[Rfam]
RNA: FMN riboswitch aptamer (RFN element)
RNA sequence: AACAUGCUUCGGGGUCGGUGAAAAUCCGAGCCGACGGUGAUAGCCCGUGAGUCCUGUUCCCUUGGUACCGGACCGAUCUGGUGGAAUUCCAGGGCCGACGGUCAAAGUCCGGAUGGGAGGACGCAUGUG
Numbered sequence: 001a002a003c004a005u006g007c008u009u010c011g012g013g014g015u016c017g018g019u020g021a022a023a024a025u026c027c028g029a030g031c032c033g034a035c036g037g038u039g040a041u042a043g044c045c046c047g048u049g050a051g052u053c054c055u056g057u058u059c060c061c062u063u064g065g066u067a068c069c070g071g072a073c074c075g076a077u078c079u080g081g082u083g084g085a086a087u088u089c090c091a092g093g094g095c096c097g098a099c100g101g102u103c104a105a106a107g108u109c110c111g112g113a114u115g116g117g118a119g120g121a122c123g124c125a126u127g128u129g
Base pairs, nucleotide, nucleotide: 003127004126005125006124007123009121010120016028017027018026030108031107032097033096034048035047036046037045043095044094051073052072053071077093078092079091080090081089099111100110101109